[Rfam]
Rfam assigns this 130-nucleotide RNA sequence from Arsenophonus sp. ENCA to the family "Bacterial antisense RNA HPnc0260". Lineage of the source: Bacteria > Pseudomonadati > Pseudomonadota > Morganellaceae > Arsenophonus. For this family Rfam cites "The primary transcriptome of the major human pathogen Helicobacter pylori" (Sharma et al., Nature, 2010).
RNA sequence: GAUGAAAAAGCGUAAACGCGCUUUUUCAUUACCAAUCGAAGCAGGCUGACUGACUUUACAAAUUGAAAACGGUAUUGGGAAUAAACAGAAUUGGUGCGUCCGAGUGGACUCGAACCACCGACCCCCACCA
Numbered sequence: 001g002a003u004g005a006a007a008a009a010g011c012g013u014a015a016a017c018g019c020g021c022u023u024u025u026u027c028a029u030u031a032c033c034a035a036u037c038g039a040a041g042c043a044g045g046c047u048g049a050c051u052g053a054c055u056u057u058a059c060a061a062a063u064u065g066a067a068a069a070c071g072g073u074a075u076u077g078g079g080a081a082u083a084a085a086c087a088g089a090a091u092u093g094g095u096g097c098g099u100c101c102g103a104g105u106g107g108a109c110u111c112g113a114a115c116c117a118c119c120g121a122c123c124c125c126c127a128c129c130a
Base pairs, nucleotide, nucleotide: 003028004027005026009022010021011020012019092127093126094125096123101120102119104118105117106116107115
Dot-bracket structure: ..(((...((((......))))...)))...............................................................(((.(....((.((((.......))))))..).)))...